[Rfam]
RNA sequence: GCUUCAGUGAACAUUCAACGCUGUCGGUGAGUUUGGAAUUCAAAUAAAAACCAUCGACCGUUGAUUGUACCCUAUAGCUAA
Numbered sequence: 001g002c003u004u005c006a007g008u009g010a011a012c013a014u015u016c017a018a019c020g021c022u023g024u025c026g027g028u029g030a031g032u033u034u035g036g037a038a039u040u041c042a043a044a045u046a047a048a049a050a051c052c053a054u055c056g057a058c059c060g061u062u063g064a065u066u067g068u069a070c071c072c073u074a075u076a077g078c079u080a081a
Stems, first nucleotide, its partner, number of pairs: 001078003012067002015064006023058007031051004